[Rfam]
RNA sequence: AAUAAACUUUAGGGGUGACUCCUUAGUAUGGAGUCUGAGAAAUACCCUUUGAACCUGAUGCAGUUAGUACUGACGAAGGGAAAAGUUAAUCUCAUUUC
Numbered sequence: 001a002a003u004a005a006a007c008u009u010u011a012g013g014g015g016u017g018a019c020u021c022c023u024u025a026g027u028a029u030g031g032a033g034u035c036u037g038a039g040a041a042a043u044a045c046c047c048u049u050u051g052a053a054c055c056u057g058a059u060g061c062a063g064u065u066a067g068u069a070c071u072g073a074c075g076a077a078g079g080g081a082a083a084a085g086u087u088a089a090u091c092u093c094a095u096u097u098c
Base pairs, nucleotide, nucleotide: 006086007085008084009083010082011048012047013046014045016042017035018034019033020032021031054079055078056077061072062071063070
Dot-bracket structure: .....(((((((((.((((((.........)))))......)..)))).....(((....(((......)))....)))..)))))............
TPP riboswitch aptamer (THI element): a 98-nucleotide RNA from Aquimarina amphilecti. Rfam's curators write: Vitamin B(1) in its active form thiamin pyrophosphate (TPP) is an essential coenzyme that is synthesised by coupling of pyrimidine and thiazole moieties in bacteria. The match comes from Rfam's covariance-model search (74 bits).